[Rfam]
RNA sequence: UGGGAAACAUACUUCUUUAUAUGCCCAUAUGGACCUGCUAAGCUAUGGAAUGUAAAGAAGUAUGUAUCUCA
Numbered sequence: 001u002g003g004g005a006a007a008c009a010u011a012c013u014u015c016u017u018u019a020u021a022u023g024c025c026c027a028u029a030u031g032g033a034c035c036u037g038c039u040a041a042g043c044u045a046u047g048g049a050a051u052g053u054a055a056a057g058a059a060g061u062a063u064g065u066a067u068c069u070c071a
Stems, first nucleotide, its partner, number of pairs: 004068002007065016025048005
RNA: mir-1 microRNA precursor family
Organism: Pongo pygmaeus